[Rfam]
RNA sequence: CGCAUAUUUCGCCCAGGCGGAGCUCGACCGCCCACUGAAGCGAUGAUCGCCUUUAUCGACGAACAUCGUGGGCAUUACGGGGUCGAGCCGAUCUGCAGAGUCCUGCCAGUCGCCCCA
Numbered sequence: 001c002g003c004a005u006a007u008u009u010c011g012c013c014c015a016g017g018c019g020g021a022g023c024u025c026g027a028c029c030g031c032c033c034a035c036u037g038a039a040g041c042g043a044u045g046a047u048c049g050c051c052u053u054u055a056u057c058g059a060c061g062a063a064c065a066u067c068g069u070g071g072g073c074a075u076u077a078c079g080g081g082g083u084c085g086a087g088c089c090g091a092u093c094u095g096c097a098g099a100g101u102c103c104u105g106c107c108a109g110u111c112g113c114c115c116c117a
Stems, first nucleotide, its partner, number of pairs: 016032005079116004089112002092109001095106004
Rfam assigns this 117-nucleotide RNA sequence from Devosia sp. I507 to the family "ALIL pseudoknot". The source organism's lineage runs through Bacteria, Pseudomonadati, Hyphomicrobiales, Devosiaceae and Devosia. By type it is a cis-regulatory element. The family's consensus secondary structure is taken from published work.